Shown here is a 93-nucleotide sequence from Steroidobacter agaridevorans, a member of the family "ZMP/ZTP riboswitch aptamer (pfl RNA motif)". Lineage of the source: Bacteria > Pseudomonadati > Gammaproteobacteria > Steroidobacterales > Steroidobacter.

RNA sequence: CUCCGCGCAUGUGACUGGCGUAGAUGGAACAACCAUCGGGAAGCAUGCGUGCAGGGGUCCUCCCUGCCGCGGCCGCUCGCCUGGGCACCAAGU
Number, nucleotide and partner (000 for none) at each position: 001c000002u000003c000004c051005g050006c049007g048008c047009a046010u045011g044012u043013g000014a000015c040016u039017g081018g080019c079020g078021u000022a000023g000024a036025u035026g034027g033028a000029a000030c000031a000032a000033c027034c026035a025036u024037c000038g000039g016040g015041a000042a000043g012044c011045a010046u009047g008048c007049g006050u005051g004052c000053a000054g000055g000056g000057g000058u000059c000060c000061u000062c000063c000064c000065u000066g000067c000068c000069g000070c000071g000072g086073c085074c084075g000076c000077u000078c020079g019080c018081c017082u000083g000084g074085g073086c072087a000088c000089c000090a000091a000092g000093u000
A search with the family's covariance model found it, with a score of 54 bits. The family's consensus secondary structure is taken from published work.